About this RNA:
Plastid-rps18 3UTR RNA: a 57-nucleotide sequence from Sciaphila densiflora. Taxonomically the source falls in Sciaphila (Eukaryota, Viridiplantae, Magnoliopsida, Pandanales). Plastid rps18 is a non-coding RNA (ncRNA) present in plastids. The base pairs follow the family's consensus structure, which was predicted with LocARNA. The sequence is in the family's curated seed alignment.

RNA sequence: AGAAAGUAUUUUACGAUUAAGAAGCAACUGUCUUUUGUACAUAUUGUAUAUGAAUUG
Numbered sequence: 001a002g003a004a005a006g007u008a009u010u011u012u013a014c015g016a017u018u019a020a021g022a023a024g025c026a027a028c029u030g031u032c033u034u035u036u037g038u039a040c041a042u043a044u045u046g047u048a049u050a051u052g053a054a055u056u057g
Base pairs, nucleotide, nucleotide: 018037019036020035021034022033024031025030